[Rfam]
RNA sequence: UCACAUUGAACUCAGGUUUCGUCAGCAGCGGGCUGUAAGCACAAAAAACAAACAAGUUCGUUGUCGACGAAACCUGCAUACUGUGUGG
Numbered sequence: 001u002c003a004c005a006u007u008g009a010a011c012u013c014a015g016g017u018u019u020c021g022u023c024a025g026c027a028g029c030g031g032g033c034u035g036u037a038a039g040c041a042c043a044a045a046a047a048a049c050a051a052a053c054a055a056g057u058u059c060g061u062u063g064u065c066g067a068c069g070a071a072a073c074c075u076g077c078a079u080a081c082u083g084u085g086u087g088g
Stems, first nucleotide, its partner, number of pairs: 001088006013076009030059005
RNA: mir-981 microRNA precursor family
Organism: Drosophila albomicans